Rfam assigns this 176-nucleotide RNA sequence from Orenia marismortui to the family "Lysine riboswitch aptamer". Pairs were carried over by alignment from the consensus structure, which is taken from published work. NCBI's taxonomy places the organism under Bacteria, Clostridia, Halanaerobiales, Halobacteroidaceae, Orenia. The match comes from Rfam's covariance-model search (114 bits).
RNA sequence: GAUUAAGAUUGAGGAGCAAAAAUUAUCAGUAUCUAUAAGGAGCUAGCUAGUGUAGAUCUAUAGUGAAAGGGAUUUUUGCCGAAAUUAAGCUAUGAUUAGCUAUCUAGCUUAGUUGGGCUUGUACUUAAUAGGUAUAAGACUGUCACUAGCUUAUCUAGUGGGGGGCUAUCUUAUCC
Numbered sequence: 001g002a003u004u005a006a007g008a009u010u011g012a013g014g015a016g017c018a019a020a021a022a023u024u025a026u027c028a029g030u031a032u033c034u035a036u037a038a039g040g041a042g043c044u045a046g047c048u049a050g051u052g053u054a055g056a057u058c059u060a061u062a063g064u065g066a067a068a069g070g071g072a073u074u075u076u077u078g079c080c081g082a083a084a085u086u087a088a089g090c091u092a093u094g095a096u097u098a099g100c101u102a103u104c105u106a107g108c109u110u111a112g113u114u115g116g117g118c119u120u121g122u123a124c125u126u127a128a129u130a131g132g133u134a135u136a137a138g139a140c141u142g143u144c145a146c147u148a149g150c151u152u153a154u155c156u157a158g159u160g161g162g163g164g165g166c167u168a169u170c171u172u173a174u175c176c
Stems, first nucleotide, its partner, number of pairs: 006171004011166001016079009033063005039057001083114010094103001115141002118138008143161007